[Rfam]
This 329-nucleotide RNA from Niveomyces insectorum belongs to the Rfam family "A. fumigatus sRNA Afu_309". Lineage of the source: Eukaryota > Fungi > Dikarya > Pezizomycotina > Niveomyces insectorum. The literature on the family includes a 2008 paper in Nucleic Acids Res by Jochl et al., "Small ncRNA transcriptome analysis from Aspergillus fumigatus suggests a novel mechanism for regulation of protein synthesis". Rfam 15.1 lists 663 matches to the family in 646 species. The family's RNA type in Rfam is small RNA.
Nucleotides: 329
Stems, first nucleotide, its partner, number of pairs: 018169008026096003029092003033088004037082005042075002045071007053064004106161001113150003117146001119144003180251002186248006201236002212230001214228001256322003259317005272306002275303001279300002283293004
Number, partner (000 for none) and nucleotide at each position: 001000u002000u003000u004000c005000c006000u007000u008000c009000u010000a011000c012000a013000a014000u015000c016000a017000c018169g019168g020167a021166u022165c023164u024163g025162u026096g027095c028094c029092c030091a031090g032000a033088c034087g035086u036085c037082c038081u039080c040079u041078g042075c043074u044000c045071g046070c047069c048068g049067c050066g051065u052000c053064u054063c055062u056061g057000u058000u059000u060000a061056c062055a063054g064053a065051a066050c067049g068048c069047g070046g071045c072000c073000g074043a075042g076000u077000u078041c079040a080039g081038a082037g083000u084000c085036g086035a087034u088033g089000u090031c091030u092029g093000c094028g095027g096026c097000a098000g099000u100000u101000c102000g103000a104000u105000a106161c107000a108000u109000c110000c111000u112000a113150u114149g115148g116000a117146g118000a119144c120143a121142u122000c123000g124000c125000a126000u127000g128000c129000u130000u131000u132000g133000c134000a135000a136000g137000a138000a139000g140000c141000u142121a143120u144119g145000g146117u147000g148115u149114c150113a151000a152000u153000g154000u155000c156000c157000u158000a159000u160000c161106g162025a163024c164023a165022g166021g167020u168019c169018c170000c171000a172000g173000a174000g175000c176000a177000g178000u179000u180251g181250g182000g183000u184000u185000u186248u187247u188246c189245g190244u191243c192000u193000g194000g195000g196000g197000a198000g199000a200000a201236g202235c203000c204000g205000a206000g207000u208000u209000c210000g211000c212230c213000g214228c215000c216000u217000u218000u219000u220000g221000u222000g223000c224000g225000g226000c227000u228214g229000a230212g231000c232000g233000a234000c235202g236201u237000g238000g239000a240000c241000c242000a243191g244190a245189c246188g247187g248186g249000g250181c251180c252000c253000g254000a255000g256322a257321c258320c259317a260316u261315c262314a263313u264000a265000u266000u267000c268000c269000a270000a271000g272306c273305c274000g275303u276000u277000u278000u279300c280299u281000g282000a283293g284292a285291c286290c287000g288000u289000c290286g291285g292284u293283c294000g295000a296000u297000g298000a299280g300279g301000u302000u303275g304000g305273g306272g307000a308000a309000a310000a311000c312000c313263a314262u315261g316260a317259u318000a319000a320258g321257g322256u323000u324000a325000c326000a327000u328000u329000u